A member of the RNA family "Archaeal RNase P" from a Methanomicrobia archaeon, 263 nucleotides long. For this family Rfam cites "The Ribonuclease P Database" (Brown, Nucleic Acids Res, 1999). Rfam's curators write: Ribonuclease P (RNase P) is a ubiquitous endoribonuclease, found in archaea, bacteria and eukarya as well as chloroplasts and mitochondria. Its best characterised activity is the generation of mature 5'-ends of tRNAs by cleaving the 5'-leader elements of precursor-tRNAs. Cellular RNase Ps are ribonucleoproteins. RNA from bacterial RNase Ps retains its catalytic activity in the absence of the protein subunit, i.e. it is a ribozyme. Isolated eukaryotic and archaeal RNase P RNA has not been shown to retain its catalytic function, but is still essential for the catalytic activity of the holoenzyme. Although the archaeal and eukaryotic holoenzymes have a much greater protein content than the bacterial ones, the RNA cores from all the three lineages are homologous -- helices corresponding to P1, P2, P3, P4, and P10/11 are common to all cellular RNase P RNAs. Yet, there is considerable sequence variation, particularly among the eukaryotic RNAs. Clan: RNaseP clan.
Nucleotides: 263
Base pairs, nucleotide, nucleotide: 001263002262003261005259006258007257008256009255010253011252012233013232014231015230016229017228021043022042023041024040025039026038027037028036029035048250049249050248052247053246054245055244056243057199058198059197060196068194069193070192071191072086073085074084075083076082087100088099089098090097091096101190102189106187107186108185109184122175123174124173125171126170127169128168129167130166131165132164145156146155203215204214205213206212
Number, partner (000 for none) and nucleotide at each position: 001263g002262a003261g004000a005259g006258a007257g008256g009255a010253a011252g012233g013232g014231c015230a016229g017228c018000u019000g020000c021043c022042g023041g024040u025039u026038c027037u028036c029035g030000u031000u032000g033000c034000u035029c036028g037027a038026g039025g040024g041023c042022u043021g044000a045000g046000g047000a048250a049249a050248g051000u052247c053246c054245c055244c056243c057199c058198a059197c060196c061000g062000u063000u064000a065000g066000g067000a068194g069193c070192g071191a072086a073085c074084g075083c076082c077000g078000a079000g080000a081000g082076g083075g084074c085073g086072u087100a088099g089098g090097g091096c092000g093000a094000g095000a096091g097090u098089c099088c100087u101190g102189g103000c104000u105000c106187u107186g108185g109184u110000a111000u112000a113000g114000a115000a116000a117000c118000g119000u120000g121000a122175c123174c124173g125171g126170a127169c128168c129167a130166u131165a132164c133000c134000c135000a136000u137000g138000u139000g140000a141000u142000g143000a144000u145156u146155c147000c148000g149000u150000a151000a152000a153000a154000g155146g156145a157000u158000g159000a160000a161000g162000u163000c164132g165131u166130a167129u168128g169127g170126u171125c172000a173124c174123g175122g176000a177000u178000g179000g180000a181000a182000c183000g184109a185108c186107c187106a188000g189102c190101c191071u192070c193069g194068c195000a196060g197059g198058u199057g200000c201000a202000a203215g204214c205213u206212u207000g208000a209000a210000g211000a212206a213205a214204g215203c216000g217000c218000u219000a220000a221000g222000a223000u224000a225000a226000a227000u228017g229016c230015u231014g232013c233012u234000g235000a236000a237000a238000c239000a240000g241000a242000a243056g244055g245054g246053g247052g248050c249049u250048u251000a252011c253010u254000c255009u256008c257007c258006u259005c260000a261003c262002u263001c